[Rfam]
RNA sequence: GCCGCGAGGCUCACUUCGUACAAGCUGCCUGAGUUUUGCGACUCGAGACACCUUUUUCGUGAGCGGGCUAAGGUCUGAGUAUUCCAUUCCUCUGUGAUUGGCUCUAGCUGGGCCCAGUUGUAAAAUGACUGCAGCGACGUACCAGAAACUCGGUGGUCCCCGAUUUUCUACACUCGAAGAUUCCUACCCAAGGAGGAGAGGAUGUCGGACAUACCACUUUGGGACAUGUUGCGAGGAACGGGUCAAGAGACUAUUCAGCGUUCGAUGAGAGCGUUGAAAAUUCUGUGUCUUGGUCCUUUAGUGCACUUCGCGGCUUGUGGUUCCAUGGCUGGACUGCUCCACAGGCCAGUCAUCCACAAAACUCGAUUCAGACUACUCUUGGUCUGGU
Numbered sequence: 001g002c003c004g005c006g007a008g009g010c011u012c013a014c015u016u017c018g019u020a021c022a023a024g025c026u027g028c029c030u031g032a033g034u035u036u037u038g039c040g041a042c043u044c045g046a047g048a049c050a051c052c053u054u055u056u057u058c059g060u061g062a063g064c065g066g067g068c069u070a071a072g073g074u075c076u077g078a079g080u081a082u083u084c085c086a087u088u089c090c091u092c093u094g095u096g097a098u099u100g101g102c103u104c105u106a107g108c109u110g111g112g113c114c115c116a117g118u119u120g121u122a123a124a125a126u127g128a129c130u131g132c133a134g135c136g137a138c139g140u141a142c143c144a145g146a147a148a149c150u151c152g153g154u155g156g157u158c159c160c161c162g163a164u165u166u167u168c169u170a171c172a173c174u175c176g177a178a179g180a181u182u183c184c185u186a187c188c189c190a191a192g193g194a195g196g197a198g199a200g201g202a203u204g205u206c207g208g209a210c211a212u213a214c215c216a217c218u219u220u221g222g223g224a225c226a227u228g229u230u231g232c233g234a235g236g237a238a239c240g241g242g243u244c245a246a247g248a249g250a251c252u253a254u255u256c257a258g259c260g261u262u263c264g265a266u267g268a269g270a271g272c273g274u275u276g277a278a279a280a281u282u283c284u285g286u287g288u289c290u291u292g293g294u295c296c297u298u299u300a301g302u303g304c305a306c307u308u309c310g311c312g313g314c315u316u317g318u319g320g321u322u323c324c325a326u327g328g329c330u331g332g333a334c335u336g337c338u339c340c341a342c343a344g345g346c347c348a349g350u351c352a353u354c355c356a357c358a359a360a361a362c363u364c365g366a367u368u369c370a371g372a373c374u375a376c377u378c379u380u381g382g383u384c385u386g387g388u
Stems, first nucleotide, its partner, number of pairs: 001388004005381003011313002014310001031044005075371005100114005115131006134232007155218003315359006
RNA: Nuclear RNase P
Organism: Marasmius oreades